RNA sequence: CGGCAUCCACACGGGAGCCCGAUGCAUCGGGCUGAGAAGGGGCUGAAGCAGCCCCGACCGUCGAACCUGCUCCGGGUCAUGCCGGCGAAGGAAGUGCUUGCGACGUGUUG
Numbered sequence: 001c002g003g004c005a006u007c008c009a010c011a012c013g014g015g016a017g018c019c020c021g022a023u024g025c026a027u028c029g030g031g032c033u034g035a036g037a038a039g040g041g042g043c044u045g046a047a048g049c050a051g052c053c054c055c056g057a058c059c060g061u062c063g064a065a066c067c068u069g070c071u072c073c074g075g076g077u078c079a080u081g082c083c084g085g086c087g088a089a090g091g092a093a094g095u096g097c098u099u100g101c102g103a104c105g106u107g108u109u110g
Stems, first nucleotide, its partner, number of pairs: 008096003011061004017032005039055007066091003072085004